[Rfam]
RNA sequence: CUUAUUGUGAUUAUUUUACCUAAGACAGUAGGAGUUAUUUAUAACUUAAAAUUUAUCCUGCCGAGGCUAAAAUUGACUUGAACGUGAUGAUCUAUGAUCUUUCAAGCACUUUUUGCCGUGGGUAGAAAGUGCUUUUUUUAUUAAUUU
Numbered sequence: 001c002u003u004a005u006u007g008u009g010a011u012u013a014u015u016u017u018a019c020c021u022a023a024g025a026c027a028g029u030a031g032g033a034g035u036u037a038u039u040u041a042u043a044a045c046u047u048a049a050a051a052u053u054u055a056u057c058c059u060g061c062c063g064a065g066g067c068u069a070a071a072a073u074u075g076a077c078u079u080g081a082a083c084g085u086g087a088u089g090a091u092c093u094a095u096g097a098u099c100u101u102u103c104a105a106g107c108a109c110u111u112u113u114u115g116c117c118g119u120g121g122g123u124a125g126a127a128a129g130u131g132c133u134u135u136u137u138u139u140a141u142u143a144a145u146u147u
Stems, first nucleotide, its partner, number of pairs: 028061006034045003106132010
Record summary: Ribosomal protein L10 leader: a 147-nucleotide sequence from Staphylococcus aureus. By type it is a cis-regulatory leader. Pairs were carried over by alignment from the consensus structure, which was predicted with CMfinder.